About this RNA: A member of the RNA family "Glycine riboswitch aptamer" from Anaerovirgula multivorans, 76 nucleotides long. Its family is annotated with glycine biosynthetic process in the Gene Ontology. The source organism's lineage runs through Bacteria, Bacillati, Bacillota, Natronincolaceae and Anaerovirgula.
RNA sequence: CUCUGGAAAGCUUAUAAAAAGCACCGAAGGAGCAAUUUCUGUAUAUAGAAAGAAACUCUCAGGUAAAUCAACAGAG
Numbered sequence: 001c002u003c004u005g006g007a008a009a010g011c012u013u014a015u016a017a018a019a020a021g022c023a024c025c026g027a028a029g030g031a032g033c034a035a036u037u038u039c040u041g042u043a044u045a046u047a048g049a050a051a052g053a054a055a056c057u058c059u060c061a062g063g064u065a066a067a068u069c070a071a072c073a074g075a076g
Stems, first nucleotide, its partner, number of pairs: 001076005011021003023064003026060002030058003036051006
Dot-bracket structure: (((((.....(((.....))).(((((..(((...((((((....))))))....))))).))).......)))))